[Rfam]
RNA: raiA RNA
RNA sequence: UCCGCUCGGGUCCGUGGUUGCGUCGCAGCGGCGCGCGGAUGUCCGCGAGUCGAGCGGCAAGCCGAUGCCAGUCGCAGGCGAAACGGUCCACGUAAGUCGAGCCCGGGCUCAGGUCCGGUGGAGAUGAUCACGGUGCGGCUUAGUCGUAAGUCCUGCCUCGGCCCGGCCACCAGAUGUGGCCGCCGCCGGGAGAAGGUCAGUAGUGGCAAGAAGCUGCGGGCGCCUCAGCAGGCGGGUGUGGGGGCGAAAACCAGGUCGGCCGAGCGGA
Numbered sequence: 001u002c003c004g005c006u007c008g009g010g011u012c013c014g015u016g017g018u019u020g021c022g023u024c025g026c027a028g029c030g031g032c033g034c035g036c037g038g039a040u041g042u043c044c045g046c047g048a049g050u051c052g053a054g055c056g057g058c059a060a061g062c063c064g065a066u067g068c069c070a071g072u073c074g075c076a077g078g079c080g081a082a083a084c085g086g087u088c089c090a091c092g093u094a095a096g097u098c099g100a101g102c103c104c105g106g107g108c109u110c111a112g113g114u115c116c117g118g119u120g121g122a123g124a125u126g127a128u129c130a131c132g133g134u135g136c137g138g139c140u141u142a143g144u145c146g147u148a149a150g151u152c153c154u155g156c157c158u159c160g161g162c163c164c165g166g167c168c169a170c171c172a173g174a175u176g177u178g179g180c181c182g183c184c185g186c187c188g189g190g191a192g193a194a195g196g197u198c199a200g201u202a203g204u205g206g207c208a209a210g211a212a213g214c215u216g217c218g219g220g221c222g223c224c225u226c227a228g229c230a231g232g233c234g235g236g237u238g239u240g241g242g243g244g245c246g247a248a249a250a251c252c253a254g255g256u257c258g259g260c261c262g263a264g265c266g267g268a
Stems, first nucleotide, its partner, number of pairs: 001268009012259003015253005065239003068078001070140007087133002092128001095125001097123001131246001152232005157190005194225004203217005